RNA sequence: UCACCUCCGUGUACUAUGGCUUUUUAUUCCUAUGUGAUGAUGAACAGCGUUCGUGUAGGAAUUAAAGCCACUAUACACGCGGUGA
Numbered sequence: 001u002c003a004c005c006u007c008c009g010u011g012u013a014c015u016a017u018g019g020c021u022u023u024u025u026a027u028u029c030c031u032a033u034g035u036g037a038u039g040a041u042g043a044a045c046a047g048c049g050u051u052c053g054u055g056u057a058g059g060a061a062u063u064a065a066a067g068c069c070a071c072u073a074u075a076c077a078c079g080c081g082g083u084g085a
Stems, first nucleotide, its partner, number of pairs: 002084004007079001009078005017070007026062012
This 85-nucleotide RNA sequence from Betta splendens belongs to the Rfam family "mir-135 microRNA precursor family".